[Rfam]
RNA sequence: UGGGAGGCAUCCGAAAAUCCUUUAAAAGAGUAGGAA
Numbered sequence: 001u002g003g004g005a006g007g008c009a010u011c012c013g014a015a016a017a018u019c020c021u022u023u024a025a026a027a028g029a030g031u032a033g034g035a036a
Base pairs, nucleotide, nucleotide: 002021003020004019005018010035011034012033
Rfam assigns this 36-nucleotide RNA to the family "DUF805b RNA". Rfam classes the family as a cis-regulatory element. It is one of the family's seed sequences.